RNA sequence: UUUGUCCUCACUUGUAUGUCGCUUUGGAUAAAAGCAUCUGCAAAAUGACUAAAA
Numbered sequence: 001u002u003u004g005u006c007c008u009c010a011c012u013u014g015u016a017u018g019u020c021g022c023u024u025u026g027g028a029u030a031a032a033a034g035c036a037u038c039u040g041c042a043a044a045a046u047g048a049c050u051a052a053a054a
Stems, first nucleotide, its partner, number of pairs: 013043001014041003021035005